The record is an 86-nucleotide RNA sequence from Pacificispira spongiicola, which matches "chrB-a RNA" in Rfam. A search with the family's covariance model found it, with a score of 67 bits.
[Rfam]
RNA sequence: CAUAUGGGGUAAGCGAUCACCCCGUGAGGCGUCAGCCGAAGUUUCGCGUCCCAUCGACAUACUAAUCGACGCGAGGGCGUGAGAUG
Number, nucleotide and partner (000 for none) at each position: 001c000002a000003u000004a000005u024006g023007g022008g021009g020010u019011a000012a000013g000014c000015g000016a000017u000018c000019a010020c009021c008022c007023c006024g005025u000026g000027a000028g000029g000030c000031g000032u000033c000034a000035g000036c000037c000038g000039a000040a000041g000042u000043u000044u000045c000046g080047c079048g078049u077050c076051c075052c000053a000054u000055c000056g000057a000058c000059a000060u000061a000062c000063u000064a000065a000066u000067c000068g000069a000070c000071g000072c000073g000074a000075g051076g050077g049078c048079g047080u046081g000082a000083g000084a000085u000086g000

Taxonomically the source falls in Pacificispira (Bacteria, Pseudomonadati, Pseudomonadota, Alphaproteobacteria).